The record is a 100-nucleotide sequence from Bacillus sp. 7884-1, which matches "Purine riboswitch aptamer" in Rfam.
The organism belongs to Bacillus, within Bacteria.
[Rfam]
RNA sequence: UAUAUAAAAGCAUAAAUCGAUUGUAUAACCUCAUUGAUAUGGUAUGAGGGUCUCUACCAGGAACCGUAAAAUCCUGAUUACGAAAAAAAUGUAUUUUUUA
Numbered sequence: 001u002a003u004a005u006a007a008a009a010g011c012a013u014a015a016a017u018c019g020a021u022u023g024u025a026u027a028a029c030c031u032c033a034u035u036g037a038u039a040u041g042g043u044a045u046g047a048g049g050g051u052c053u054c055u056a057c058c059a060g061g062a063a064c065c066g067u068a069a070a071a072u073c074c075u076g077a078u079u080a081c082g083a084a085a086a087a088a089a090u091g092u093a094u095u096u097u098u099u100a
Stems, first nucleotide, its partner, number of pairs: 021083005029049006058076005